[Rfam]
Nucleotides: 099
Stems, first nucleotide, its partner, number of pairs: 006087005011049004016043001017026003033042002055080003061074004
Number, partner (000 for none) and nucleotide at each position: 001000a002000u003000u004000u005000a006087c007086u008085u009084g010083u011049c012048g013047g014046a015000g016043u017026g018025c019024c020000u021000u022000u023000u024019g025018g026017c027000u028000g029000a030000g031000a032000c033042c034041g035000u036000u037000a038000a039000u040000u041034c042033g043016g044000g045000a046014u047013c048012c049011g050000u051000u052000g053000a054000a055080c056079c057078u058000g059000a060000u061074c062073a063072g064071g065000u066000u067000a068000a069000c070000a071064c072063c073062u074061g075000c076000g077000a078057a079056g080055g081000g082000a083010a084009c085008a086007a087006g088000a089000g090000a091000c092000g093000a094000u095000a096000c097000u098000u099000a